small nucleolar RNA snoR134: a 165-nucleotide RNA from Artemisia annua. For this family Rfam cites "Mining small RNA sequencing data: a new approach to identify small nucleolar RNAs in Arabidopsis" (Chen and Wu, Nucleic Acids Res, 2009). The organism belongs to Artemisia, within Eukaryota. Rfam 15.1 lists 792 matches to the family in 228 species. The match comes from Rfam's covariance-model search (91 bits). Gene Ontology terms of the family: RNA processing and nucleolus.
[Rfam]
RNA sequence: CAGCAUGUAGCACCCCGGGCUUCUCCGAAACAAUACAUAAAAAUGAAGAAGUAAGCCCCAAUGCUCGUGCUAAAUCAUAUUUUUCUGCCGUCAAGUGUUGCAGUUCAGCCACUGUACCUAACUUUUUUCCAUGGCUGUUUCUGUGUCAAAUUGUCGGCUACAAUU
Numbered sequence: 001c002a003g004c005a006u007g008u009a010g011c012a013c014c015c016c017g018g019g020c021u022u023c024u025c026c027g028a029a030a031c032a033a034u035a036c037a038u039a040a041a042a043a044u045g046a047a048g049a050a051g052u053a054a055g056c057c058c059c060a061a062u063g064c065u066c067g068u069g070c071u072a073a074a075u076c077a078u079a080u081u082u083u084u085c086u087g088c089c090g091u092c093a094a095g096u097g098u099u100g101c102a103g104u105u106c107a108g109c110c111a112c113u114g115u116a117c118c119u120a121a122c123u124u125u126u127u128u129c130c131a132u133g134g135c136u137g138u139u140u141c142u143g144u145g146u147c148a149a150a151u152u153g154u155c156g157g158c159u160a161c162a163a164u165u
Base pairs, nucleotide, nucleotide: 003070004069005068006067007066010064011063017058018057019056020055021054023051024049025048087158088157089156090155092153093152096148097147099145100144101143102142103141107136108135109134110133111132